[Rfam]
RNA sequence: AAAUUAAAUAGGCAAAUUUAGAGAAAUCUAGAGACGCAAAGCUAUAGGGACUAAGGUUUAUAACUAUGUCAGCCAGUUGCCAAA
Numbered sequence: 001a002a003a004u005u006a007a008a009u010a011g012g013c014a015a016a017u018u019u020a021g022a023g024a025a026a027u028c029u030a031g032a033g034a035c036g037c038a039a040a041g042c043u044a045u046a047g048g049g050a051c052u053a054a055g056g057u058u059u060a061u062a063a064c065u066a067u068g069u070c071a072g073c074c075a076g077u078u079g080c081c082a083a084a
Stems, first nucleotide, its partner, number of pairs: 012037002017032006040078004047074002049070003056064003

Notes:
A member of the RNA family "c-di-GMP-I riboswitch aptamer" from Clostridium neonatale, 84 nucleotides long. On this family, see Sudarsan et al., Science 2008: "Riboswitches in Eubacteria Sense the Second Messenger Cyclic Di-GMP". A search with the family's covariance model found it, with a score of 79 bits. The base pairs follow the family's consensus structure, which is taken from published work. Taxonomically the source falls in Clostridium (Bacteria, Bacillota, Eubacteriales, Clostridiaceae).